[Rfam]
RNA sequence: UUGGAGGUGAUGACUAUUUCCCCAGAUGAUCGACGCUGAUUAUACUGUGCUACUUUAGCGUUCCUCUUUGUUGAGGAACCAAGCCAGUCUUGCUGAUCCAU
Numbered sequence: 001u002u003g004g005a006g007g008u009g010a011u012g013a014c015u016a017u018u019u020c021c022c023c024a025g026a027u028g029a030u031c032g033a034c035g036c037u038g039a040u041u042a043u044a045c046u047g048u049g050c051u052a053c054u055u056u057a058g059c060g061u062u063c064c065u066c067u068u069u070g071u072u073g074a075g076g077a078a079c080c081a082a083g084c085c086a087g088u089c090u091u092g093c094u095g096a097u098c099c100a101u
Stems, first nucleotide, its partner, number of pairs: 002100004
RNA: Small nucleolar RNA Z103